Notes: Shown here is an 86-nucleotide sequence from Nyssa sinensis, a member of the family "Small nucleolar RNA SNORD34". Pairs were carried over by alignment from the consensus structure, which was predicted with PFOLD. The family has 14 seed sequences and 1,319 matches in Rfam 15.1. A reference for the family is Galardi et al. (2002), "Purified box C/D snoRNPs are able to reproduce site-specific 2'-O-methylation of target RNA in vitro", Mol Cell Biol. Rfam describes the family as follows. snoRNA U34 is found in intron 5 of the ribosomal protein L13a gene in humans.
[Rfam]
RNA sequence: UGGGGCCAUGAUGAUUUAAAGAUUUGCCUACAUUGUCUGAUUUCCAUAUUCAUGACAGAGGAAUCUAAAAUUAUUCUGAGGCCUCG
Numbered sequence: 001u002g003g004g005g006c007c008a009u010g011a012u013g014a015u016u017u018a019a020a021g022a023u024u025u026g027c028c029u030a031c032a033u034u035g036u037c038u039g040a041u042u043u044c045c046a047u048a049u050u051c052a053u054g055a056c057a058g059a060g061g062a063a064u065c066u067a068a069a070a071u072u073a074u075u076c077u078g079a080g081g082c083c084u085c086g
Stems, first nucleotide, its partner, number of pairs: 001086002004083004